[Rfam]
RNA sequence: GGAUCGAUGAUGUCACCCCCCAAAAGCAUUCCUUGGAAAGCUGAACAAAAUGAGUGAGAACCCCCUACCGUUGUUCUCGUUGGAUCUUUGAUCU
Numbered sequence: 001g002g003a004u005c006g007a008u009g010a011u012g013u014c015a016c017c018c019c020c021c022a023a024a025a026g027c028a029u030u031c032c033u034u035g036g037a038a039a040g041c042u043g044a045a046c047a048a049a050a051u052g053a054g055u056g057a058g059a060a061c062c063c064c065c066u067a068c069c070g071u072u073g074u075u076c077u078c079g080u081u082g083g084a085u086c087u088u089u090g091a092u093c094u
Stems, first nucleotide, its partner, number of pairs: 001094005027056005033048003